A member of the RNA family "Small nucleolar RNA snR60/Z15/Z230/Z193/J17" from Hemiprocne comata, 86 nucleotides long. On this family, see Lowe and Eddy, Science 1999: "A computational screen for methylation guide snoRNAs in yeast". Clan: SNORD77 clan. A search with the family's covariance model found it, with a score of 62 bits. The family's RNA type in Rfam is C/D-box small nucleolar RNA. Rfam 15.1 lists 3,592 matches to the family in 1,855 species. Pairs were carried over by alignment from the consensus structure.

RNA sequence: CAGAUACAGUGAUGAUGACAUAGUUCAGCAGAAUGUCCUGUGACGAACACAAGAGUUUUGUCUUUCGCUCCUAUCUGAUGUAUCUG
Dot-bracket structure: ...(((((......................................................................)))))...